[Rfam]
RNA sequence: CCCAUGGGGCCUGCGACCGCCCCACGAGGCGUCAGCUGAAGUUCGCGUUCCACUGAAACCUUCACGGGAGGAACGCCCAUG
Number, nucleotide and partner (000 for none) at each position: 001c000002c000003c000004a000005u024006g023007g022008g021009g020010c019011c000012u000013g000014c000015g000016a000017c000018c000019g010020c009021c008022c007023c006024a005025c000026g000027a000028g000029g000030c000031g000032u000033c000034a000035g000036c000037u000038g000039a000040a000041g000042u000043u000044c000045g076046c075047g074048u073049u072050c071051c000052a000053c000054u000055g000056a000057a000058a000059c000060c000061u000062u000063c000064a000065c000066g000067g000068g000069a000070g000071g050072a049073a048074c047075g046076c045077c000078c000079a000080u000081g000